[Rfam]
RNA: 6S-Flavo RNA
RNA sequence: ACUCAACGUUAUUACAUUUAAAAAGGGUGAGUUUAAGUUGUGAAAGCGGGCCCUACUCGUAUAGGGAUUAUUGAGCAGCUUGUUAGCCCUAAACCUGUUAUUUAGGAGUUU
Numbered sequence: 001a002c003u004c005a006a007c008g009u010u011a012u013u014a015c016a017u018u019u020a021a022a023a024a025g026g027g028u029g030a031g032u033u034u035a036a037g038u039u040g041u042g043a044a045a046g047c048g049g050g051c052c053c054u055a056c057u058c059g060u061a062u063a064g065g066g067a068u069u070a071u072u073g074a075g076c077a078g079c080u081u082g083u084u085a086g087c088c089c090u091a092a093a094c095c096u097g098u099u100a101u102u103u104a105g106g107a108g109u110u111u
Stems, first nucleotide, its partner, number of pairs: 024090005035081005044072002051066004